The record is a 119-nucleotide RNA sequence from Aquaspirillum sp. LM1, which matches "Glycine riboswitch aptamer" in Rfam. From the family's description: This family represents the bacterial glycine riboswitch. A search with the family's covariance model found it, with a score of 42 bits. The family is grouped with related families in Rfam's "Glycine riboswitch clan".
RNA sequence: CCGACCAACUCUGGAGAGCGCCGGCUUGGGCCGGACACCGAAGGGGCUAACGGCAUCCUGCGGCGGCACUGCGCCGCCCGUGCCGGAAAAUCUCAGGUAAUCAGGACAGAGGGGUGUUG
Numbered sequence: 001c002c003g004a005c006c007a008a009c010u011c012u013g014g015a016g017a018g019c020g021c022c023g024g025c026u027u028g029g030g031c032c033g034g035a036c037a038c039c040g041a042a043g044g045g046g047c048u049a050a051c052g053g054c055a056u057c058c059u060g061c062g063g064c065g066g067c068a069c070u071g072c073g074c075c076g077c078c079c080g081u082g083c084c085g086g087a088a089a090a091u092c093u094c095a096g097g098u099a100a101u102c103a104g105g106a107c108a109g110a111g112g113g114g115u116g117u118u119g
Base pairs, nucleotide, nucleotide: 006114009111010110011109012108013107021034022033023032037098038097039096040094041093044092045091051085052084053083054082055081056080